[Rfam]
RNA: Actinobacteria sRNA Ms_IGR-5
RNA sequence: ACACGAGGAAGGAGGUGGUCUGGACAAUGAGUGAAUGUCGGACACGUGAGGUGGCUGCCGGCUAGCCGCUGUCGCCGACGACGGUAUUCACCGACCGCGCGCGCGGCUGGCGAAUCCCAGGUAGUCACCCGGCCCCCGAGCCCCCGGUCUGUCCGGCCGGGACCUGUGAGGGAGUGGAUGCGUCCGCCCUCGCCGGUAUGGCUCGGGGGUCGCUCCGU
Numbered sequence: 001a002c003a004c005g006a007g008g009a010a011g012g013a014g015g016u017g018g019u020c021u022g023g024a025c026a027a028u029g030a031g032u033g034a035a036u037g038u039c040g041g042a043c044a045c046g047u048g049a050g051g052u053g054g055c056u057g058c059c060g061g062c063u064a065g066c067c068g069c070u071g072u073c074g075c076c077g078a079c080g081a082c083g084g085u086a087u088u089c090a091c092c093g094a095c096c097g098c099g100c101g102c103g104c105g106g107c108u109g110g111c112g113a114a115u116c117c118c119a120g121g122u123a124g125u126c127a128c129c130c131g132g133c134c135c136c137c138g139a140g141c142c143c144c145c146g147g148u149c150u151g152u153c154c155g156g157c158c159g160g161g162a163c164c165u166g167u168g169a170g171g172g173a174g175u176g177g178a179u180g181c182g183u184c185c186g187c188c189c190u191c192g193c194c195g196g197u198a199u200g201g202c203u204c205g206g207g208g209g210u211c212g213c214u215c216c217g218u
Stems, first nucleotide, its partner, number of pairs: 014059006061111006068104002073099003130212013143161006